Rfam assigns this 139-nucleotide sequence from Helicobacter sp. MIT 99-5507 to the family "purD RNA motif".
Gene Ontology term of the family: regulation of gene expression.
The literature on the family includes a 2007 paper in Nucleic Acids Res by Weinberg et al., "Identification of 22 candidate structured RNAs in bacteria using the CMfinder comparative genomics pipeline".

RNA sequence: GUAGUCAUUUAUGUGUGUUGGCAUUUCUGUUAUUUAGAUAUUUUUGUAUCUAGGAUUUGCCCCUAAGUAAUUGCUCAGAAUCUAGGUUUAGUAUCUUGUAAUAGGGGCUAGACAAUUUUUAAGUAACGCCCAUUUGGGU
Number, nucleotide and partner (000 for none) at each position: 001g000002u000003a075004g074005u000006c073007a072008u000009u070010u069011a000012u000013g000014u000015g000016u000017g000018u000019u000020g061021g060022c059023a058024u000025u000026u055027c054028u053029g000030u000031u000032a000033u000034u000035u000036a000037g050038a049039u048040a047041u000042u000043u000044u000045u000046g000047u040048a039049u038050c037051u000052a000053g028054g027055a026056u000057u000058u023059g022060c021061c020062c000063c000064u000065a000066a000067g000068u000069a010070a009071u000072u007073g006074c004075u003076c000077a000078g000079a000080a000081u000082c000083u000084a000085g000086g000087u000088u000089u111090a000091g109092u000093a000094u106095c105096u104097u103098g102099u000100a000101a000102u098103a097104g096105g095106g094107g000108c000109u091110a000111g089112a000113c000114a000115a000116u000117u000118u000119u000120u000121a000122a000123g000124u000125a000126a000127c000128g000129c000130c000131c000132a000133u000134u000135u000136g000137g000138g000139u000